[Rfam]
RNA: 6S / SsrS RNA
RNA sequence: AAUCCCCUGCGGUGUUCGCCAAGGUCAUAGAUUCCUUGAACCAAUGUUGAUUGGCAUGAGGUUGCGAACCUAGGACGCCGCUGUUGUGCCGGCCCUUCACGGGCUGGCCUGAUGCGGCAGGAACGCAGCCGCUCUGAACCCUCGGUUCAGGAUGCCGGCCUAGCGACAUGCGCGGGGGUCCC
Numbered sequence: 001a002a003u004c005c006c007c008u009g010c011g012g013u014g015u016u017c018g019c020c021a022a023g024g025u026c027a028u029a030g031a032u033u034c035c036u037u038g039a040a041c042c043a044a045u046g047u048u049g050a051u052u053g054g055c056a057u058g059a060g061g062u063u064g065c066g067a068a069c070c071u072a073g074g075a076c077g078c079c080g081c082u083g084u085u086g087u088g089c090c091g092g093c094c095c096u097u098c099a100c101g102g103g104c105u106g107g108c109c110u111g112a113u114g115c116g117g118c119a120g121g122a123a124c125g126c127a128g129c130c131g132c133u134c135u136g137a138a139c140c141c142u143c144g145g146u147u148c149a150g151g152a153u154g155c156c157g158g159c160c161u162a163g164c165g166a167c168a169u170g171c172g173c174g175g176g177g178g179u180c181c182c
Stems, first nucleotide, its partner, number of pairs: 004178008012169004017165003033152003037149006060130003064126003069121001071120001077118005088108006